The family of this 108-nucleotide RNA sequence from Brassica napus is "Small nucleolar RNA Z279/snoR105/snoR108". Rfam 15.1 lists 906 matches to the family in 223 species. NCBI's taxonomy places the organism under Eukaryota, Spermatophyta, eudicotyledons, Pentapetalae, Brassica.

[Rfam]
RNA sequence: GGGAAGUGAGGAUUGGGUUUAAUCACGCAUAUUUAAUUGUGUGAAGAGCGUUCCGCUCAAACCUUUUUACGACAAUUGGGCGCUCCAAUUUUCAUAUCAUCUGAUCCC
Numbered sequence: 001g002g003g004a005a006g007u008g009a010g011g012a013u014u015g016g017g018u019u020u021a022a023u024c025a026c027g028c029a030u031a032u033u034u035a036a037u038u039g040u041g042u043g044a045a046g047a048g049c050g051u052u053c054c055g056c057u058c059a060a061a062c063c064u065u066u067u068u069a070c071g072a073c074a075a076u077u078g079g080g081c082g083c084u085c086c087a088a089u090u091u092u093c094a095u096a097u098c099a100u101c102u103g104a105u106c107c108c
Stems, first nucleotide, its partner, number of pairs: 001108004014099003018096001024043005046085007064078001067075001

A search with the family's covariance model found it, with a score of 81 bits. Rfam describes the family as follows. This family includes the plant snoRNAs known as Z279, snoR105 and snoR108. The family's RNA type in Rfam is C/D-box small nucleolar RNA.